[Rfam]
RNA sequence: AAGUGAGGACGACCUCACCGCUCUAUCUCAUUCGGGGACGACUCC
Numbered sequence: 001a002a003g004u005g006a007g008g009a010c011g012a013c014c015u016c017a018c019c020g021c022u023c024u025a026u027c028u029c030a031u032u033c034g035g036g037g038a039c040g041a042c043u044c045c
Stems, first nucleotide, its partner, number of pairs: 003018006034045004
RNA: Guanidine-II riboswitch aptamer (mini-ykkC)
Organism: Aliiglaciecola sp. M165